[Rfam]
RNA sequence: GGUUUGCAAAGACCAAUACUCACCCUCCACGUGGGGCAAGCCGGGCAACGCACUCUUUUAGAGUGCGGCAAAUGAGUAA
Number, nucleotide and partner (000 for none) at each position: 001g042002g041003u040004u039005u038006g037007c036008a000009a000010a000011g000012a000013c000014c000015a000016a000017u000018a000019c000020u000021c000022a000023c035024c034025c033026u000027c000028c000029a000030c000031g000032u000033g025034g024035g023036g007037c006038a005039a004040g003041c002042c001043g000044g000045g000046c000047a000048a000049c067050g066051c065052a064053c063054u062055c061056u060057u000058u000059u000060a056061g055062a054063g053064u052065g051066c050067g049068g000069c000070a000071a000072a000073u000074g000075a000076g000077u000078a000079a000
RNA: HDV ribozyme from F. prausnitzii
Organism: Thrips palmi